RNA: mir-30 microRNA precursor family
Organism: Clarias magur
RNA sequence: ACAGUCGGUGUAAACAUCCUACACUCAGCUUCAGUGGUGAUAAAACGCUGAGAGGAGGGUGUUUGCUUUGACUGG
Numbered sequence: 001a002c003a004g005u006c007g008g009u010g011u012a013a014a015c016a017u018c019c020u021a022c023a024c025u026c027a028g029c030u031u032c033a034g035u036g037g038u039g040a041u042a043a044a045a046c047g048c049u050g051a052g053a054g055g056a057g058g059g060u061g062u063u064u065g066c067u068u069u070g071a072c073u074g075g
Stems, first nucleotide, its partner, number of pairs: 002074005008068001010066011022054001024052006